About this RNA:
FMN riboswitch aptamer (RFN element): a 134-nucleotide sequence from Antribacter soli.
[Rfam]
RNA sequence: ACACGUGCUCCGGGGUCGGUGUAAUUCCGAACCGGCGGUGACAGCCCGCGACCCGCGUCCCUCCUCGGAGGGCCGGUUGAUCUGGUGGAACUCCAGAGCCGACGGUGAAAGUCCGGAUGGGAGGCAGCACGUGC
Numbered sequence: 001a002c003a004c005g006u007g008c009u010c011c012g013g014g015g016u017c018g019g020u021g022u023a024a025u026u027c028c029g030a031a032c033c034g035g036c037g038g039u040g041a042c043a044g045c046c047c048g049c050g051a052c053c054c055g056c057g058u059c060c061c062u063c064c065u066c067g068g069a070g071g072g073c074c075g076g077u078u079g080a081u082c083u084g085g086u087g088g089a090a091c092u093c094c095a096g097a098g099c100c101g102a103c104g105g106u107g108a109a110a111g112u113c114c115g116g117a118u119g120g121g122a123g124g125c126a127g128c129a130c131g132u133g134c
Stems, first nucleotide, its partner, number of pairs: 003132007010123001017029003031112002033101002035049004044099002053076002081097005103115003
It scores 97 bits against the family's covariance model. NCBI's taxonomy places the organism under Bacteria, Actinomycetota, Actinomycetes, Promicromonosporaceae, Antribacter.